[Rfam]
RNA sequence: GGAUAACAUUUUUUGCUAUCUCCGGUUAAUAACGCAAUGAUGUGUAUGAUAACUUUUUCAUAUAUCAUUGUGUUAUUGGCCGAAAAUAACAAAACAAUAUUAUUU
Numbered sequence: 001g002g003a004u005a006a007c008a009u010u011u012u013u014u015g016c017u018a019u020c021u022c023c024g025g026u027u028a029a030u031a032a033c034g035c036a037a038u039g040a041u042g043u044g045u046a047u048g049a050u051a052a053c054u055u056u057u058u059c060a061u062a063u064a065u066c067a068u069u070g071u072g073u074u075a076u077u078g079g080c081c082g083a084a085a086a087u088a089a090c091a092a093a094a095c096a097a098u099a100u101u102a103u104u105u
Stems, first nucleotide, its partner, number of pairs: 002104004011094005017088003021084001023082023048057002
Shown here is a 105-nucleotide RNA from Prunus armeniaca, a member of the family "MIR6274 microRNA precursor family". The family's consensus secondary structure was predicted with RNAalifold. The source organism's lineage runs through Eukaryota, Viridiplantae, Rosales, Rosaceae and Prunus. Gene Ontology terms of the family: miRNA-mediated post-transcriptional gene silencing and RISC complex.